[Rfam]
RNA sequence: AAGCAUGAUAGAGGCGCGAUUGCUAAGAGUAGUUUUUACCACUUUUGCAGGCACAAGGACGAAUGAAAGGAGUAAUCGCCGAGAUUUGCUAGCAUUGCCUGAUGCUAUCAAAUUGGGAUGUCGGAUAAGAUCCGCCAUACUGUCGCACAAUGCGGAGAGCUAUCAUGGCA
Numbered sequence: 001a002a003g004c005a006u007g008a009u010a011g012a013g014g015c016g017c018g019a020u021u022g023c024u025a026a027g028a029g030u031a032g033u034u035u036u037u038a039c040c041a042c043u044u045u046u047g048c049a050g051g052c053a054c055a056a057g058g059a060c061g062a063a064u065g066a067a068a069g070g071a072g073u074a075a076u077c078g079c080c081g082a083g084a085u086u087u088g089c090u091a092g093c094a095u096u097g098c099c100u101g102a103u104g105c106u107a108u109c110a111a112a113u114u115g116g117g118a119u120g121u122c123g124g125a126u127a128a129g130a131u132c133c134g135c136c137a138u139a140c141u142g143u144c145g146c147a148c149a150a151u152g153c154g155g156a157g158a159g160c161u162a163u164c165a166u167g168g169c170a
Stems, first nucleotide, its partner, number of pairs: 006165006016079009032064004037059001039057001083114006090107005115141002118138003122134004143155005
A member of the RNA family "Lysine riboswitch aptamer" from Amedibacillus dolichus, 170 nucleotides long.
From the family's description: Riboswitches are metabolite binding domains within certain messenger RNAs that serve as precision sensors for their corresponding targets.